[Rfam]
RNA sequence: AAAGCAGGCUGCAAUUACAGUGCUUCAUUCUGUGGGAGUGCUGAGAGUAACUCUGUUAAUGCCGUCUUUGGUUUCACCUAUACGGUGGUGAAACCGUUUGUUCUUAACAUGUACAAGU
Numbered sequence: 001a002a003a004g005c006a007g008g009c010u011g012c013a014a015u016u017a018c019a020g021u022g023c024u025u026c027a028u029u030c031u032g033u034g035g036g037a038g039u040g041c042u043g044a045g046a047g048u049a050a051c052u053c054u055g056u057u058a059a060u061g062c063c064g065u066c067u068u069u070g071g072u073u074u075c076a077c078c079u080a081u082a083c084g085g086u087g088g089u090g091a092a093a094c095c096g097u098u099u100g101u102u103c104u105u106a107a108c109a110u111g112u113a114c115a116a117g118u
Stems, first nucleotide, its partner, number of pairs: 003057006018043009063111003069096010
RNA: Small nucleolar RNA SNORA69